[Rfam]
RNA sequence: AACCAAUGAUGAAAACGAUUCUGCCAUAUGAAACUACUGAUUUUACUCUAAACCGUUCCAUUUUUUUCUGAGGUU
Numbered sequence: 001a002a003c004c005a006a007u008g009a010u011g012a013a014a015a016c017g018a019u020u021c022u023g024c025c026a027u028a029u030g031a032a033a034c035u036a037c038u039g040a041u042u043u044u045a046c047u048c049u050a051a052a053c054c055g056u057u058c059c060a061u062u063u064u065u066u067u068c069u070g071a072g073g074u075u
Stems, first nucleotide, its partner, number of pairs: 001075004
Dot-bracket structure: ((((...................................................................))))
Small nucleolar RNA SNORD47: a 75-nucleotide RNA from Hymenochirus boettgeri. The base pairs follow the family's consensus structure, which was predicted with ILM. It scores 76 bits against the family's covariance model. The family's RNA type in Rfam is C/D-box small nucleolar RNA. Its family is annotated with nucleolus and RNA processing in the Gene Ontology.